Rfam assigns this 59-nucleotide RNA from Homo sapiens to the family "mir-3167 microRNA precursor family". Pairs were carried over by alignment from the consensus structure, which was predicted with RNAalifold. Rfam links the family to the GO terms miRNA-mediated post-transcriptional gene silencing and RISC complex. Rfam's curators put it in the seed alignment.
RNA sequence: CAGUAUUUCUGAAAUUCUUUUUUCUGAAAUUCUUCAGGAAGGAUUUCAGAAAUACUGGU
Numbered sequence: 001c002a003g004u005a006u007u008u009c010u011g012a013a014a015u016u017c018u019u020u021u022u023u024c025u026g027a028a029a030u031u032c033u034u035c036a037g038g039a040a041g042g043a044u045u046u047c048a049g050a051a052a053u054a055c056u057g058g059u
Base pairs, nucleotide, nucleotide: 001057002056003055004054005053006052007051008050009049010048011047012046013045014044015043016042017041018040022039023038024037025036026035027034028033